This 267-nucleotide RNA sequence from Aureliella helgolandensis belongs to the Rfam family "Group II catalytic intron D1-D4-6". Group II introns are found in rRNA, tRNA and mRNA of organelles in fungi, plants and protists, and also in mRNA in bacteria. Rfam 15.1 lists 1,617 matches to the family in 661 species. The pairing is the family consensus, mapped onto this sequence. It scores 87 bits against the family's covariance model.

RNA sequence: UAACUCCCGACUGAGCAGCUGUUAGCCACAGGCUCAGUAUCUAGGCUUGCACCGAGGUAUAAGACACUGUGCCGAAGUCGUCGGUUGAUGUGUAGUCAAGAAAGUUAGCGAGGAUGAAAGGUAGGGACUGGCCGUCCCGCCCUGAACGAGAUUGAGCUCCGAAAUUUGGUGACUGUUGGCUCCUGCCCAAGGUUUGUUCAUACUGGAAGGCAAUACUGACUAUCGCGUUUUGGCAAGCGAUAUUCAGAGACCCGGGGUCGAAGGCCC
Numbered sequence: 001u002a003a004c005u006c007c008c009g010a011c012u013g014a015g016c017a018g019c020u021g022u023u024a025g026c027c028a029c030a031g032g033c034u035c036a037g038u039a040u041c042u043a044g045g046c047u048u049g050c051a052c053c054g055a056g057g058u059a060u061a062a063g064a065c066a067c068u069g070u071g072c073c074g075a076a077g078u079c080g081u082c083g084g085u086u087g088a089u090g091u092g093u094a095g096u097c098a099a100g101a102a103a104g105u106u107a108g109c110g111a112g113g114a115u116g117a118a119a120g121g122u123a124g125g126g127a128c129u130g131g132c133c134g135u136c137c138c139g140c141c142c143u144g145a146a147c148g149a150g151a152u153u154g155a156g157c158u159c160c161g162a163a164a165u166u167u168g169g170u171g172a173c174u175g176u177u178g179g180c181u182c183c184u185g186c187c188c189a190a191g192g193u194u195u196g197u198u199c200a201u202a203c204u205g206g207a208a209g210g211c212a213a214u215a216c217u218g219a220c221u222a223u224c225g226c227g228u229u230u231u232g233g234c235a236a237g238c239g240a241u242a243u244u245c246a247g248a249g250a251c252c253c254g255g256g257g258u259c260g261a262a263g264g265c266c267c
Base pairs, nucleotide, nucleotide: 012036013035014034015033019031020030021029022028023236025234026233038103040101041100044097045096046095047094048092049091050087051085052084053083054082153261154259156258157257158256159255160254161253178252179251181250182249184248185211186210187209191204192203193202216247217246218245219244221242222241223240224239225238226237
Dot-bracket structure: ...........((((...(((([.[[.)))).)))).(.((..(((((((((((...........................)))).)...)).))))..)).).................................................((.((((((................((.((.((((...(((........)))....)))....((((.((((((......]].])))))).)))))))))))))))).)......